The record is a 132-nucleotide RNA sequence from Microtus ochrogaster, which matches "Small nucleolar RNA SNORA72" in Rfam. Rfam classes the family as an H/ACA-box small nucleolar RNA. The literature on the family includes a 1997 paper in Genes Dev by Ganot et al., "The family of box ACA small nucleolar RNAs is defined by an evolutionarily conserved secondary structure and ubiquitous sequence elements essential for RNA accumulation". It scores 134 bits against the family's covariance model. Rfam describes the family as follows. U72 is a member of the H/ACA class of snoRNAs. The snoRNA gene is located in intron 4 of the ribosomal L30 protein gene in human, mouse and chicken.
[Rfam]
RNA sequence: CUGCGAAUCUUCUCGCUGUUCUGGUUCUGUGAUAACCAGGGCAGGCUAGACAUUCGCUACAGGAAGGCCAUGCAUGUGUCCCCAGACCUAGGUCUGUACCUAGGCCUGGUUUUCUAGAUGCUGGUGACAAGA
Numbered sequence: 001c002u003g004c005g006a007a008u009c010u011u012c013u014c015g016c017u018g019u020u021c022u023g024g025u026u027c028u029g030u031g032a033u034a035a036c037c038a039g040g041g042c043a044g045g046c047u048a049g050a051c052a053u054u055c056g057c058u059a060c061a062g063g064a065a066g067g068c069c070a071u072g073c074a075u076g077u078g079u080c081c082c083c084a085g086a087c088c089u090a091g092g093u094c095u096g097u098a099c100c101u102a103g104g105c106c107u108g109g110u111u112u113u114c115u116a117g118a119u120g121c122u123g124g125u126g127a128c129a130a131g132a
Stems, first nucleotide, its partner, number of pairs: 003057003016044011067125004072121002082109004087104005